[Rfam]
RNA sequence: CCCUGUUCUCAGGGCGGGGCGAAACUCCCCACCGGCGGUAGGCGGCGCGAGCCGUGAGCCCGCGAGCGCCUUCCGAUGGAAGGGUCAGCAGAUCAGGUGCGAUGCCUGAGCCGACGGUCACAGUCCGGAUGAAAGAGAACGGAC
Numbered sequence: 001c002c003c004u005g006u007u008c009u010c011a012g013g014g015c016g017g018g019g020c021g022a023a024a025c026u027c028c029c030c031a032c033c034g035g036c037g038g039u040a041g042g043c044g045g046c047g048c049g050a051g052c053c054g055u056g057a058g059c060c061c062g063c064g065a066g067c068g069c070c071u072u073c074c075g076a077u078g079g080a081a082g083g084g085u086c087a088g089c090a091g092a093u094c095a096g097g098u099g100c101g102a103u104g105c106c107u108g109a110g111c112c113g114a115c116g117g118u119c120a121c122a123g124u125c126c127g128g129a130u131g132a133a134a135g136a137g138a139a140c141g142g143a144c
Base pairs, nucleotide, nucleotide: 003142004141005140006139007138008137009136010135017029018028019027031124032123033113034112035063036062037061038060058111059110066089067088093109094108095107096106097105115127116126117125
Source information
Shown here is a 144-nucleotide sequence from Neorhizobium galegae, a member of the family "FMN riboswitch aptamer (RFN element)". The organism belongs to Neorhizobium galegae bv. orientalis, within Bacteria. The base pairs follow the family's consensus structure, which is taken from published work.